[Rfam]
RNA sequence: CGGGUCGAGGGGCGCUGCAGUCGUCAUGCCUCCUGCGCUGAUCCGGCCGGAUGAUUUCCCGGCCGGGAAGGCGGCGGGGUGACGAUCAGGCUCGGCCUAUGCUUCCCAUCUGUGAAACCGCGCUCGCUUUCA
Numbered sequence: 001c002g003g004g005u006c007g008a009g010g011g012g013c014g015c016u017g018c019a020g021u022c023g024u025c026a027u028g029c030c031u032c033c034u035g036c037g038c039u040g041a042u043c044c045g046g047c048c049g050g051a052u053g054a055u056u057u058c059c060c061g062g063c064c065g066g067g068a069a070g071g072c073g074g075c076g077g078g079g080u081g082a083c084g085a086u087c088a089g090g091c092u093c094g095g096c097c098u099a100u101g102c103u104u105c106c107c108a109u110c111u112g113u114g115a116a117a118c119c120g121c122g123c124u125c126g127c128u129u130u131c132a
Base pairs, nucleotide, nucleotide: 002098003097004096005095006094007093008092021085022084023083024082025081026080